[Rfam]
Nucleotides: 120
Base pairs, nucleotide, nucleotide: 001009014039016037017036018035019034021032022031023030024029044119047089048087049086050085051084052078053077055075056074057073059071060070061069062068096115098113099112
Number, partner (000 for none) and nucleotide at each position: 001009g002000a003000u004000g005000g006000g007000g008000c009001c010000c011000c012000u013000c014039g015000g016037a017036g018035u019034c020000g021032g022031u023030u024029u025000a026000c027000a028000g029024a030023a031022g032021c033000a034019g035018a036017c037016u038000a039014c040000a041000a042000a043000c044119c045000a046000g047089c048087u049086c050085a051084a052078g053077c054000g055075g056074c057073a058000u059071u060070g061069a062068u063000a064000a065000a066000g067000a068062g069061u070060c071059a072000g073057u074056g075055u076000c077053g078052u079000g080000a081000g082000c083000g084051u085050u086049g087048a088000a089047g090000a091000a092000a093000a094000a095000g096115g097000a098113g099112u100000a101000a102000u103000a104000a105000a106000a107000u108000a109000a110000a111000a112099a113098c114000g115096u116000a117000a118000g119044g120000u
The record is a 120-nucleotide RNA from Leptospira weilii, which matches "Group II catalytic intron D1-D4-2" in Rfam. Rfam 15.1 lists 1,231 matches to the family in 625 species. A search with the family's covariance model found it, with a score of 73 bits. The organism belongs to Leptospira weilii serovar Topaz, within Bacteria.